Rfam assigns this 81-nucleotide RNA sequence from Neodiprion lecontei to the family "Small nucleolar RNA Me28S-Gm3255". By type it is a C/D-box small nucleolar RNA. The family's consensus secondary structure was predicted with PFOLD.

[Rfam]
RNA sequence: GCUUAUAUGAUGAAUACUAUAUUAAUUUCUGACACCUCUUCUGAACCGUUGUGAGGUAAUCUAUAAGCUAAAUCUGACAUC
Number, nucleotide and partner (000 for none) at each position: 001g081002c000003u079004u000005a000006u000007a000008u000009g000010a000011u000012g000013a000014a000015u000016a000017c000018u000019a000020u000021a000022u000023u000024a000025a000026u000027u000028u000029c000030u000031g000032a000033c000034a000035c000036c000037u000038c000039u000040u000041c000042u051043g050044a049045a000046c000047c000048g000049u044050u043051g042052u000053g000054a000055g000056g000057u000058a000059a000060u000061c000062u000063a000064u000065a000066a000067g000068c000069u000070a000071a000072a000073u000074c000075u000076g000077a000078c000079a003080u000081c001
The family has 10 seed sequences and 39 matches in Rfam 15.1. Lineage of the source: Eukaryota > Bilateria > Protostomia > Hexapoda > Neodiprion.